The family of this 149-nucleotide RNA from Lupinus angustifolius is "Small nucleolar RNA snoR2/U65". For this family Rfam cites "Localization and processing from a polycistronic precursor of novel snoRNAs in maize" (Shaw et al., J Cell Sci, 1998). The family has 11 seed sequences and 908 matches in Rfam 15.1. It is annotated as an H/ACA-box small nucleolar RNA. Taxonomically the source falls in Lupinus (Eukaryota, Mesangiospermae, eudicotyledons, fabids). A search with the family's covariance model found it, with a score of 135 bits. The family's consensus secondary structure was predicted with WAR.

[Rfam]
RNA sequence: GGUUCGAUGCCACGUCGAUGGUAGCUACGUGCAAUGACCAACGAUGCUAUGAUUGAACCAAAAUCAAGAGUGAAUUGUUUCGCAUCUUGAUAGGAAUCUGUGGAUUUCGUAACUUUCAAUUCACGGAGCCGUUUUAUGCGAUUACAUUU
Numbered sequence: 001g002g003u004u005c006g007a008u009g010c011c012a013c014g015u016c017g018a019u020g021g022u023a024g025c026u027a028c029g030u031g032c033a034a035u036g037a038c039c040a041a042c043g044a045u046g047c048u049a050u051g052a053u054u055g056a057a058c059c060a061a062a063a064u065c066a067a068g069a070g071u072g073a074a075u076u077g078u079u080u081c082g083c084a085u086c087u088u089g090a091u092a093g094g095a096a097u098c099u100g101u102g103g104a105u106u107u108c109g110u111a112a113c114u115u116u117c118a119a120u121u122c123a124c125g126g127a128g129c130c131g132u133u134u135u136a137u138g139c140g141a142u143u144a145c146a147u148u149u
Stems, first nucleotide, its partner, number of pairs: 002058007009050001013046005020039003024032002080141005093130002098126003102122005